A member of the RNA family "Bacterial RNase P class B" from Heliorestis acidaminivorans, 358 nucleotides long.
RNA sequence: UAUGGUGGAUAGUCGCGGCUUCUGCUAUUGCAGGGGUCGAGGAAAUUCGAGACACGCCCAGCUCUGCUUUGAAGCAGGACUGGAGUAUGGUGCCUAGUGCAAACUAGGGCAGGGCGACCUGACGACGGCAAAAGCAUCUCUUAGGAGAGGUAAGUAGCCAUAAAGUGCCACAGAAACGAUAUCCUCCGGCGACGGAGGAGUGCAAGGGUAAACUCCACUAGCGUGCAACCCAAAUAGGCGACAAUGUCGCGGGUAGGGGCACUCGCUACGGCGAGAAGUAAAGUUUUCUUUAGAAAGCUUUGUUUAGACAAAUGACUAUCCAUCGGCUUUAGCCGGGGACAGAAUCUCGAUUACAGCC
Numbered sequence: 001u002a003u004g005g006u007g008g009a010u011a012g013u014c015g016c017g018g019c020u021u022c023u024g025c026u027a028u029u030g031c032a033g034g035g036g037u038c039g040a041g042g043a044a045a046u047u048c049g050a051g052a053c054a055c056g057c058c059c060a061g062c063u064c065u066g067c068u069u070u071g072a073a074g075c076a077g078g079a080c081u082g083g084a085g086u087a088u089g090g091u092g093c094c095u096a097g098u099g100c101a102a103a104c105u106a107g108g109g110c111a112g113g114g115c116g117a118c119c120u121g122a123c124g125a126c127g128g129c130a131a132a133a134g135c136a137u138c139u140c141u142u143a144g145g146a147g148a149g150g151u152a153a154g155u156a157g158c159c160a161u162a163a164a165g166u167g168c169c170a171c172a173g174a175a176a177c178g179a180u181a182u183c184c185u186c187c188g189g190c191g192a193c194g195g196a197g198g199a200g201u202g203c204a205a206g207g208g209u210a211a212a213c214u215c216c217a218c219u220a221g222c223g224u225g226c227a228a229c230c231c232a233a234a235u236a237g238g239c240g241a242c243a244a245u246g247u248c249g250c251g252g253g254u255a256g257g258g259g260c261a262c263u264c265g266c267u268a269c270g271g272c273g274a275g276a277a278g279u280a281a282a283g284u285u286u287u288c289u290u291u292a293g294a295a296a297g298c299u300u301u302g303u304u305u306a307g308a309c310a311a312a313u314g315a316c317u318a319u320c321c322a323u324c325g326g327c328u329u330u331a332g333c334c335g336g337g338g339a340c341a342g343a344a345u346c347u348c349g350a351u352u353a354c355a356g357c358c
Stems, first nucleotide, its partner, number of pairs: 004358003007354001008320007016039008044352003048349005053225005058083004063079002088220005093108006109123001110121004124215002127159003135150001138147003165213002167209003182199007229258003262275005276305013323336005

Rfam describes the family as follows. Ribonuclease P (RNase P) is a ubiquitous endoribonuclease, found in archaea, bacteria and eukarya as well as chloroplasts and mitochondria. It is annotated as a ribozyme. Gene Ontology terms of the family: ribonuclease P activity, dimeric ribonuclease P complex and tRNA processing.